This 141-nucleotide RNA from Rattus norvegicus belongs to the Rfam family "U4 spliceosomal RNA". It is annotated as a spliceosomal small nuclear RNA.
[Rfam]
RNA sequence: AGCUUUGGUAAUUGGCAGUGUUAAAGCCAGUGAGGUUUAUCUGAGGUGCAAUUAUAGCUAAUUGAAAACUUUCUCCAAUACCCUGCCACGAUGACUUUAAAUAUAGUUGGGAUUGGCAAUUUUUGACGGUUUCUAUAGAAA
Numbered sequence: 001a002g003c004u005u006u007g008g009u010a011a012u013u014g015g016c017a018g019u020g021u022u023a024a025a026g027c028c029a030g031u032g033a034g035g036u037u038u039a040u041c042u043g044a045g046g047u048g049c050a051a052u053u054a055u056a057g058c059u060a061a062u063u064g065a066a067a068a069c070u071u072u073c074u075c076c077a078a079u080a081c082c083c084u085g086c087c088a089c090g091a092u093g094a095c096u097u098u099a100a101a102u103a104u105a106g107u108u109g110g111g112a113u114u115g116g117c118a119a120u121u122u123u124u125g126a127c128g129g130u131u132u133c134u135a136u137a138g139a140a141a
Base pairs, nucleotide, nucleotide: 020052021051022050026047027046028045034042035041085117086116087115088113092109093108094107095106096105130141131140132139133138
Gene Ontology terms of the family: U4 snRNP and spliceosomal tri-snRNP complex assembly. The base pairs follow the family's consensus structure, which is taken from published work. A reference for the family is Zwieb (1997), "The uRNA database", Nucleic Acids Res.